Rfam assigns this 142-nucleotide RNA from Lucilia cuprina to the family "Small nucleolar RNA psi18S-841/snoR66". Its family is annotated with RNA processing and nucleolus in the Gene Ontology. psi18S-841 is a member of the H/ACA class of snoRNA. This family is responsible for guiding the modification of uridine 841 in Drosophila 18S rRNA to pseudouridine. The family has 24 seed sequences and 108 matches in Rfam 15.1. Taxonomically the source falls in Lucilia (Eukaryota, Opisthokonta, Pancrustacea, Insecta). Its Rfam clan is "SNORA28 clan".
[Rfam]
RNA sequence: GGCAAAAUCACUCUGUGUUAUCAUUUUAUUAAACAGUGAUAAAACAAUUUGUAUUUUUGCCAGAUAAAGAGCAAAAUAACGCUUUACACUAUUAUGUUAAACUAUAUCCAAACAUAACAGUGAUAUAAUUUUGCUACACUUU
Numbered sequence: 001g002g003c004a005a006a007a008u009c010a011c012u013c014u015g016u017g018u019u020a021u022c023a024u025u026u027u028a029u030u031a032a033a034c035a036g037u038g039a040u041a042a043a044a045c046a047a048u049u050u051g052u053a054u055u056u057u058u059g060c061c062a063g064a065u066a067a068a069g070a071g072c073a074a075a076a077u078a079a080c081g082c083u084u085u086a087c088a089c090u091a092u093u094a095u096g097u098u099a100a101a102c103u104a105u106a107u108c109c110a111a112a113c114a115u116a117a118c119a120g121u122g123a124u125a126u127a128a129u130u131u132u133g134c135u136a137c138a139c140u141u142u
Stems, first nucleotide, its partner, number of pairs: 002060006010052002014046003018042006025036001066141002070135003074132003078129001086124001087122001089120002092117005097111002